Record summary
The record is a 105-nucleotide part of an RNA from Saccharomyces mikatae, which matches "Saccharomyces telomerase" in Rfam. The family is grouped with related families in Rfam's "Telomerase clan". It is annotated as a non-coding RNA gene. Taxonomically the source falls in Saccharomyces mikatae (Eukaryota, Fungi, saccharomyceta, Saccharomycetales). The sequence is in the family's curated seed alignment.
RNA sequence: AGAAAUGAUUUAUUCUAUUUUUUUUUUUCUUUUUCGUUUUUCAGUAGAUUUUUGCCUUUCGAGAGAAUAAAUUCCACUAAAAAGGGUUAAAGAAAAAUCUAUUCA
Number, nucleotide and partner (000 for none) at each position: 001a041002g040003a039004a038005a037006u036007g035008a034009u071010u070011u069012a068013u067014u066015c065016u064017a000018u000019u000020u000021u000022u000023u000024u000025u000026u000027u000028u000029c000030u000031u000032u000033u000034u008035c007036g006037u005038u004039u003040u002041u001042c000043a103044g102045u101046a100047g099048a098049u097050u096051u095052u094053u000054g000055c000056c000057u000058u000059u000060c000061g000062a000063g000064a016065g015066a014067a013068u012069a011070a010071a009072u000073u000074c000075c000076a000077c000078u000079a000080a000081a000082a000083a000084g000085g000086g000087u000088u000089a000090a000091a000092g000093a000094a052095a051096a050097a049098u048099c047100u046101a045102u044103u043104c000105a000